About this RNA:
A member of the RNA family "RT-17 RNA", 95 nucleotides long. The base pairs follow the family's consensus structure, which is taken from published work.
RNA sequence: UACCGUGCCACUUGGCAAAACAUCAAAAACACCAAAGAACCGUAUUAGUAGACCCGGCAUCUGCCGGGGUCGAAAGUUCGGUUCAGUGCAUACAA
Numbered sequence: 001u002a003c004c005g006u007g008c009c010a011c012u013u014g015g016c017a018a019a020a021c022a023u024c025a026a027a028a029a030c031a032c033c034a035a036a037g038a039a040c041c042g043u044a045u046u047a048g049u050a051g052a053c054c055c056g057g058c059a060u061c062u063g064c065c066g067g068g069g070u071c072g073a074a075a076g077u078u079c080g081g082u083u084c085a086g087u088g089c090a091u092a093c094a095a
Stems, first nucleotide, its partner, number of pairs: 006017004044077002051071001054067004